[Rfam]
RNA sequence: UUCCCCGUUCGAUGUUCUAUAGAAAUGAUGUGGUAACGGUUCGCCUAAAAACCGUUGGUUGCUUAGUACACAAUCAAUUUAUCACACAAUUUUACUUUAGAGCUGACAACGGGUUUUUUG
Numbered sequence: 001u002u003c004c005c006c007g008u009u010c011g012a013u014g015u016u017c018u019a020u021a022g023a024a025a026u027g028a029u030g031u032g033g034u035a036a037c038g039g040u041u042c043g044c045c046u047a048a049a050a051a052c053c054g055u056u057g058g059u060u061g062c063u064u065a066g067u068a069c070a071c072a073a074u075c076a077a078u079u080u081a082u083c084a085c086a087c088a089a090u091u092u093u094a095c096u097u098u099a100g101a102g103c104u105g106a107c108a109a110c111g112g113g114u115u116u117u118u119u120g
Base pairs, nucleotide, nucleotide: 004113005112006111007110008109009108014103015102016101017100018099019098021096023093024092025091026088027087030085031084033082034081035080036079037054038053039052040051041050055077056076057075058074059073060072061071
A member of the RNA family "MtlS RNA" from Vibrio sp. V28_P6S34P95, 120 nucleotides long. A reference for the family is Mustachio et al. (2012), "The Vibrio cholerae mannitol transporter is regulated post-transcriptionally by the MtlS small RNA", Journal of Bacteriology. It scores 102 bits against the family's covariance model.